Shown here is an 82-nucleotide RNA from Sulfurirhabdus autotrophica, a member of the family "c-di-GMP-I-GGC riboswitch aptamer". Clan: c-di-GMP_I riboswitch clan. A search with the family's covariance model found it, with a score of 61 bits.
RNA sequence: AAAGUUAAAGCCACCCCUGUCGUGAGGCAGGUUCGGAAAGCUUCGGGUCUCAAGCAAUGAAGAGAUAGCCGGGUUGCCUUAU
Numbered sequence: 001a002a003a004g005u006u007a008a009a010g011c012c013a014c015c016c017c018u019g020u021c022g023u024g025a026g027g028c029a030g031g032u033u034c035g036g037a038a039a040g041c042u043u044c045g046g047g048u049c050u051c052a053a054g055c056a057a058u059g060a061a062g063a064g065a066u067a068g069c070c071g072g073g074u075u076g077c078c079u080u081a082u
Base pairs, nucleotide, nucleotide: 001082003079004078011036012035016031017030018029019028020027021026034068039075040074041073042072044071045070046069047066048065049064050063051062